[Rfam]
RNA sequence: GGCAGAGGGAGCCGAGUUCCCGCGGAGGCGCGCACGCGCCCCCGUGAGGAAAGUCCCCCCACCGUUCGGGCAGGCGACCGGGCGCAAGUCCGGAGCGGGAGACCGCUGGCUCUGGAACAGAAACGAGACCCCUCUCCCCGACCGAUGAGGUGUGCGAAUCCCGACCCGAAGCGGCUCGCGCCGCAGCAAGGAACGGAGAGUUGACCCACCGAGGGAUAGCGUCCCGACCUCGUCGGGACGAAAACGAGGCGGUACACACCGCCGAGUGCGUGGCGAAGCCACCCGACGGGAGAGAACGGAUGGAACGGCGAAUCCUCGCCGGUGCAAGUCCACGCCGCGAUGCUCGGCGUCUCGACGUCGAGCGUCGAGGUAGCCCGAACGACGGCGCGGACGCUCAGCCGAAUACUCGGACGAACAGAAGGGGGCUUACUCCCCUCAGCC
Numbered sequence: 001g002g003c004a005g006a007g008g009g010a011g012c013c014g015a016g017u018u019c020c021c022g023c024g025g026a027g028g029c030g031c032g033c034a035c036g037c038g039c040c041c042c043c044g045u046g047a048g049g050a051a052a053g054u055c056c057c058c059c060c061a062c063c064g065u066u067c068g069g070g071c072a073g074g075c076g077a078c079c080g081g082g083c084g085c086a087a088g089u090c091c092g093g094a095g096c097g098g099g100a101g102a103c104c105g106c107u108g109g110c111u112c113u114g115g116a117a118c119a120g121a122a123a124c125g126a127g128a129c130c131c132c133u134c135u136c137c138c139c140g141a142c143c144g145a146u147g148a149g150g151u152g153u154g155c156g157a158a159u160c161c162c163g164a165c166c167c168g169a170a171g172c173g174g175c176u177c178g179c180g181c182c183g184c185a186g187c188a189a190g191g192a193a194c195g196g197a198g199a200g201u202u203g204a205c206c207c208a209c210c211g212a213g214g215g216a217u218a219g220c221g222u223c224c225c226g227a228c229c230u231c232g233u234c235g236g237g238a239c240g241a242a243a244a245c246g247a248g249g250c251g252g253u254a255c256a257c258a259c260c261g262c263c264g265a266g267u268g269c270g271u272g273g274c275g276a277a278g279c280c281a282c283c284c285g286a287c288g289g290g291a292g293a294g295a296a297c298g299g300a301u302g303g304a305a306c307g308g309c310g311a312a313u314c315c316u317c318g319c320c321g322g323u324g325c326a327a328g329u330c331c332a333c334g335c336c337g338c339g340a341u342g343c344u345c346g347g348c349g350u351c352u353c354g355a356c357g358u359c360g361a362g363c364g365u366c367g368a369g370g371u372a373g374c375c376c377g378a379a380c381g382a383c384g385g386c387g388c389g390g391a392c393g394c395u396c397a398g399c400c401g402a403a404u405a406c407u408c409g410g411a412c413g414a415a416c417a418g419a420a421g422g423g424g425g426c427u428u429a430c431u432c433c434c435c436u437c438a439g440c441c
Stems, first nucleotide, its partner, number of pairs: 001441003005437005010431002012410006021046005051428003055425005060324004069348001073320005078093005094107005108315002113311001115309001129299002132294007328392004333387004
A member of the RNA family "Archaeal RNase P" from Halorussus gelatinilyticus, 441 nucleotides long. Its Rfam clan is "RNaseP clan". Rfam's curators write: Ribonuclease P (RNase P) is a ubiquitous endoribonuclease, found in archaea, bacteria and eukarya as well as chloroplasts and mitochondria. Its best characterised activity is the generation of mature 5'-ends of tRNAs by cleaving the 5'-leader elements of precursor-tRNAs. The source organism's lineage runs through Archaea, Methanobacteriati, Halobacteriales, Haladaptataceae and Halorussus. It is annotated as a ribozyme. Rfam links the family to the GO terms tRNA processing, multimeric ribonuclease P complex and ribonuclease P activity.